RNA: mir-17 microRNA precursor family
RNA sequence: UAAAGUGCUUAUAGUGCAGGUAGUUCUAUGGCCAUCUACUGCAGUGUGAGCACUUGAUGU
Dot-bracket structure: ..(((((((((((.(((.(((((............)))))))).))))))))))).....